Rfam assigns this 74-nucleotide RNA sequence from Lepisosteus oculatus to the family "Small nucleolar RNA SNORD83".
A search with the family's covariance model found it, with a score of 43 bits.
The family's RNA type in Rfam is C/D-box small nucleolar RNA.
For this family Rfam cites "Characterisation of the U83 and U84 small nucleolar RNAs: two novel 2'-O-ribose methylation guide RNAs that lack complementarities to ribosomal RNAs" (Jady and Kiss, Nucleic Acids Res, 2000).
[Rfam]
RNA sequence: GCCAAGUGAUGUUCAACAGAUUGCAUUAGCACUUGCAAAGAUGACCAUCUAUCUAUCACCCAUGGCUGAUGGCU
Numbered sequence: 001g002c003c004a005a006g007u008g009a010u011g012u013u014c015a016a017c018a019g020a021u022u023g024c025a026u027u028a029g030c031a032c033u034u035g036c037a038a039a040g041a042u043g044a045c046c047a048u049c050u051a052u053c054u055a056u057c058a059c060c061c062a063u064g065g066c067u068g069a070u071g072g073c074u
Stems, first nucleotide, its partner, number of pairs: 001073004029036002